About this RNA: A member of the RNA family "U12 minor spliceosomal RNA" from Synaphobranchus kaupii, 156 nucleotides long. The source organism's lineage runs through Eukaryota, Gnathostomata, Neopterygii, Elopomorpha and Synaphobranchus. The base pairs follow the family's consensus structure.
[Rfam]
RNA sequence: AUGCCUUAAACUGAUGAGUAAGGAAAAUAACGACGCGGGGUGACGCCCGUGUCCUCGCCCAGAUUUGCGAGAAGAAUUUUUGAAAGGGCACAGGUCCGCUUGUCAGAGGUGACUCGCCUACUUUGUGAGAUGCCUCGCAGGUUGCAGAUCUGCCCC
Number, nucleotide and partner (000 for none) at each position: 001a000002u000003g000004c023005c022006u021007u020008a019009a000010a000011c000012u000013g000014a000015u000016g000017a000018g000019u008020a007021a006022g005023g004024a000025a000026a000027a000028u000029a000030a000031c000032g053033a052034c051035g050036c049037g048038g047039g046040g000041u000042g000043a000044c000045g000046c039047c038048c037049g036050u035051g034052u033053c032054c071055u070056c069057g068058c067059c000060c000061a000062g000063a000064u000065u000066u000067g058068c057069g056070a055071g054072a000073a000074g000075a000076a000077u000078u000079u000080u000081u000082g000083a000084a000085a000086g155087g154088g153089c152090a000091c000092a151093g150094g149095u148096c147097c000098g145099c000100u000101u139102g138103u000104c000105a000106g000107a135108g134109g133110u132111g131112a000113c129114u128115c127116g126117c125118c000119u000120a000121c000122u000123u000124u000125g117126u116127g115128a114129g113130a000131u111132g110133c109134c108135u107136c000137g000138c102139a101140g000141g000142u000143u000144g000145c098146a000147g096148a095149u094150c093151u092152g089153c088154c087155c086156c000